[Rfam]
RNA: Iron response element I
RNA sequence: CUGUCUCUUGUUUCAACAUGUUUGGACAGAACAG
Numbered sequence: 001c002u003g004u005c006u007c008u009u010g011u012u013u014c015a016a017c018a019u020g021u022u023u024g025g026a027c028a029g030a031a032c033a034g
Stems, first nucleotide, its partner, number of pairs: 001034004006030003010027001012026005